RNA sequence: CCCCCAUGAGGAAACCCUCACGUGUCUGACCCCCCCGCUGGGCCCAGGUCCUGCAAAGGUUGAACCCCCUGCAGCCCUCGGGGGGAACAGAGGACGAGCUGUCCCAGAGGGGACGGUCUGAGGGGG
Numbered sequence: 001c002c003c004c005c006a007u008g009a010g011g012a013a014a015c016c017c018u019c020a021c022g023u024g025u026c027u028g029a030c031c032c033c034c035c036c037g038c039u040g041g042g043c044c045c046a047g048g049u050c051c052u053g054c055a056a057a058g059g060u061u062g063a064a065c066c067c068c069c070u071g072c073a074g075c076c077c078u079c080g081g082g083g084g085g086a087a088c089a090g091a092g093g094a095c096g097a098g099c100u101g102u103c104c105c106a107g108a109g110g111g112g113a114c115g116g117u118c119u120g121a122g123g124g125g126g
Stems, first nucleotide, its partner, number of pairs: 001125004
Dot-bracket structure: ((((.....................................................................................................................)))).

Shown here is a 126-nucleotide sequence from Oenanthe oenanthe, a member of the family "Small nucleolar RNA SNORD22". Its family is annotated with nucleolus and RNA processing in the Gene Ontology. The family's consensus secondary structure was predicted with PFOLD. It scores 80 bits against the family's covariance model.